[Rfam]
RNA sequence: AGAUAAGAUGAUGACGAAAUUGUUUCCCUAUUGGUUUGAUUGGCCGCAAUGAUGGCUAAAUCUGUAUUAGCUCUAUCUGAUCAUCU
Numbered sequence: 001a002g003a004u005a006a007g008a009u010g011a012u013g014a015c016g017a018a019a020u021u022g023u024u025u026c027c028c029u030a031u032u033g034g035u036u037u038g039a040u041u042g043g044c045c046g047c048a049a050u051g052a053u054g055g056c057u058a059a060a061u062c063u064g065u066a067u068u069a070g071c072u073c074u075a076u077c078u079g080a081u082c083a084u085c086u
Stems, first nucleotide, its partner, number of pairs: 002085003042057004
RNA: Small nucleolar RNA Z102/R77